Rfam assigns this 147-nucleotide RNA sequence from Peptostreptococcus anaerobius to the family "glmS glucosamine-6-phosphate activated ribozyme aptamer". The source organism's lineage runs through Bacteria, Bacillati, Bacillota, Clostridia and Peptostreptococcus anaerobius. The family's RNA type in Rfam is riboswitch.

RNA sequence: UUUGUAUGCUUAGCGCCAGACUGAUAUUUCAGUUAACGAGGACGAAGAAAUCGAGAUAUUCGGCGGAUACUUCGCGGUGGCCUACCAUCGAAAGGUAUACCUUAAAAGCAGGAGUGAUCCUGUAACAAAGGGUCUACUAGUAGGGGC
Numbered sequence: 001u002u003u004g005u006a007u008g009c010u011u012a013g014c015g016c017c018a019g020a021c022u023g024a025u026a027u028u029u030c031a032g033u034u035a036a037c038g039a040g041g042a043c044g045a046a047g048a049a050a051u052c053g054a055g056a057u058a059u060u061c062g063g064c065g066g067a068u069a070c071u072u073c074g075c076g077g078u079g080g081c082c083u084a085c086c087a088u089c090g091a092a093a094g095g096u097a098u099a100c101c102u103u104a105a106a107a108g109c110a111g112g113a114g115u116g117a118u119c120c121u122g123u124a125a126c127a128a129a130g131g132g133u134c135u136a137c138u139a140g141u142a143g144g145g146g147c
Base pairs, nucleotide, nucleotide: 020033021032022031023030024029043074044073045072046071047070051063052062053061054060075090076089077088078087079086080085095137096136097135099133100132101131108123109122110121111120112119113118